[Rfam]
RNA sequence: AGGUCAGGAAGGCUGCAUUAAGCGGUCUGCUGGGGAGUAAAUGCCCACCUGGCUA
Numbered sequence: 001a002g003g004u005c006a007g008g009a010a011g012g013c014u015g016c017a018u019u020a021a022g023c024g025g026u027c028u029g030c031u032g033g034g035g036a037g038u039a040a041a042u043g044c045c046c047a048c049c050u051g052g053c054u055a
Base pairs, nucleotide, nucleotide: 002054003053004052005051006050007049008048010028011027012026013025014024015023016022031047032046033045034044
The record is a 55-nucleotide RNA, which matches "DUF3800-VI RNA" in Rfam. The family's consensus secondary structure is taken from published work. The family's RNA type in Rfam is cis-regulatory element.